RNA sequence: CCUCGUUCCCGCUCCCCUUUGCCGCGUCCUCCGGCUUUCUCUGAUGCACUUCCUCUUUAACAGGAAGUGCAUCAGAGAGAGCCGGAGGACGCGGCAAAGGGGAGCGGGAACGAGGCU
Numbered sequence: 001c002c003u004c005g006u007u008c009c010c011g012c013u014c015c016c017c018u019u020u021g022c023c024g025c026g027u028c029c030u031c032c033g034g035c036u037u038u039c040u041c042u043g044a045u046g047c048a049c050u051u052c053c054u055c056u057u058u059a060a061c062a063g064g065a066a067g068u069g070c071a072u073c074a075g076a077g078a079g080a081g082c083c084g085g086a087g088g089a090c091g092c093g094g095c096a097a098a099g100g101g102g103a104g105c106g107g108g109a110a111c112g113a114g115g116c117u
Stems, first nucleotide, its partner, number of pairs: 010106007018098002021095034
This 117-nucleotide sequence from Microcaecilia unicolor belongs to the Rfam family "mraW RNA". The match comes from Rfam's covariance-model search (54 bits). NCBI's taxonomy places the organism under Eukaryota, Vertebrata, Dipnotetrapodomorpha, Amphibia, Microcaecilia.